[Rfam]
The family of this 78-nucleotide RNA sequence from Serratia plymuthica is "KDPG-aldolase RNA".
RNA sequence: GGUACGGCCGGACGUCCGCAUACACUUGCGGAGCCCUGUGGCAGGGGCGUGCCAUUUAUAAACCGUAAGUAGUGGAGA
Numbered sequence: 001g002g003u004a005c006g007g008c009c010g011g012a013c014g015u016c017c018g019c020a021u022a023c024a025c026u027u028g029c030g031g032a033g034c035c036c037u038g039u040g041g042c043a044g045g046g047g048c049g050u051g052c053c054a055u056u057u058a059u060a061a062a063c064c065g066u067a068a069g070u071a072g073u074g075g076a077g078a
Stems, first nucleotide, its partner, number of pairs: 001053006015032006064069001